The record is an 83-nucleotide RNA sequence from Phenylobacterium glaciei, which matches "ZMP/ZTP riboswitch aptamer (pfl RNA motif)" in Rfam. NCBI's taxonomy places the organism under Bacteria, Pseudomonadota, Alphaproteobacteria, Caulobacteraceae, Phenylobacterium. Pairs were carried over by alignment from the consensus structure, which is taken from published work.

[Rfam]
Nucleotides: 083
Base pairs, nucleotide, nucleotide: 004055006053007052008051009050010049011048012047015044016043017071018070019069020068021067029040030039031038032037061077062076063075064074
Number, partner (000 for none) and nucleotide at each position: 001000c002000g003000c004055g005000a006053c007052c008051u009050g010049c011048g012047u013000g014000a015044c016043u017071g018070g019069c020068g021067a022000a023000a024000c025000u026000g027000a028000g029040g030039u031038g032037g033000g034000a035000g036000a037032c038031c039030a040029c041000c042000g043016g044015g045000g046000a047012g048011c049010g050009c051008a052007g053006g054000g055004u056000c057000c058000a059000u060000a061077u062076g063075c064074c065000g066000c067021u068020c069019g070018c071017c072000u073000g074064g075063g076062c077061a078000a079000a080000g081000c082000c083000u